[Rfam]
RNA sequence: GCAGAUGUGGUGGAAUUGGUAGACACGCUAGCUUCAGGUGCUAGUGCCUUCACGGGCGUGGGAGUUCAAGUCUCCCCAUCUGCA
Numbered sequence: 001g002c003a004g005a006u007g008u009g010g011u012g013g014a015a016u017u018g019g020u021a022g023a024c025a026c027g028c029u030a031g032c033u034u035c036a037g038g039u040g041c042u043a044g045u046g047c048c049u050u051c052a053c054g055g056g057c058g059u060g061g062g063a064g065u066u067c068a069a070g071u072c073u074c075c076c077c078a079u080c081u082g083c084a
Base pairs, nucleotide, nucleotide: 001083002082003081004080005079006078007077010026011025012024028044029043030042031041032040060076061075062074063073064072
The family of this 84-nucleotide RNA from Paraferrimonas sedimenticola is "tRNA". It is annotated as a transfer RNA. The source organism's lineage runs through Bacteria, Pseudomonadati, Gammaproteobacteria, Ferrimonadaceae and Paraferrimonas. The family has 954 seed sequences and 5,335,975 matches in Rfam 15.1.